[Rfam]
RNA: c-di-AMP riboswitch aptamer (ydaO/yuaA leader)
RNA sequence: AAAGUUUACUUGCCGAAUUCACAUAAUGUGAAGCGGGGGACGAUUUAAUUUUGGGGUGUAUCCGUAUCAACGGAAAGAGACCUUAUCCUCUUAACCCGUCAACUAACCUCGUAGGCACGAAGGGAGUAAAA
Numbered sequence: 001a002a003a004g005u006u007u008a009c010u011u012g013c014c015g016a017a018u019u020c021a022c023a024u025a026a027u028g029u030g031a032a033g034c035g036g037g038g039g040a041c042g043a044u045u046u047a048a049u050u051u052u053g054g055g056g057u058g059u060a061u062c063c064g065u066a067u068c069a070a071c072g073g074a075a076a077g078a079g080a081c082c083u084u085a086u087c088c089u090c091u092u093a094a095c096c097c098g099u100c101a102a103c104u105a106a107c108c109u110c111g112u113a114g115g116c117a118c119g120a121a122g123g124g125a126g127u128a129a130a131a
Stems, first nucleotide, its partner, number of pairs: 011117004018032003033112006041053002054097003062073004076091004